[Rfam]
RNA sequence: UAUAUGGAUAGAGGCGCGGGUGCGAUGAACCCCACAGGAGCCGGCAGGUGCAGAUCGUGGGGCGGGGCAAGCCCGCCGAAUUGGCGCAGCCGGGCGCGGCGGUGCCGAUGGGGCCCCGGGGAAUACCCGCGGCACUGUCCGCGGAAGGACCGCGGGGGCGCUAUCUUACCU
Numbered sequence: 001u002a003u004a005u006g007g008a009u010a011g012a013g014g015c016g017c018g019g020g021u022g023c024g025a026u027g028a029a030c031c032c033c034a035c036a037g038g039a040g041c042c043g044g045c046a047g048g049u050g051c052a053g054a055u056c057g058u059g060g061g062g063c064g065g066g067g068c069a070a071g072c073c074c075g076c077c078g079a080a081u082u083g084g085c086g087c088a089g090c091c092g093g094g095c096g097c098g099g100c101g102g103u104g105c106c107g108a109u110g111g112g113g114c115c116c117c118g119g120g121g122a123a124u125a126c127c128c129g130c131g132g133c134a135c136u137g138u139c140c141g142c143g144g145a146a147g148g149a150c151c152g153c154g155g156g157g158g159c160g161c162u163a164u165c166u167u168a169c170c171u
Stems, first nucleotide, its partner, number of pairs: 006166006016076006024068001030062006037055001080109008089100003110136002113133003117129004138156007
This 171-nucleotide RNA from Gemmiger sp. An194 belongs to the Rfam family "Lysine riboswitch aptamer". The family's consensus secondary structure is taken from published work. From the family's description: Riboswitches are metabolite binding domains within certain messenger RNAs that serve as precision sensors for their corresponding targets. It scores 67 bits against the family's covariance model.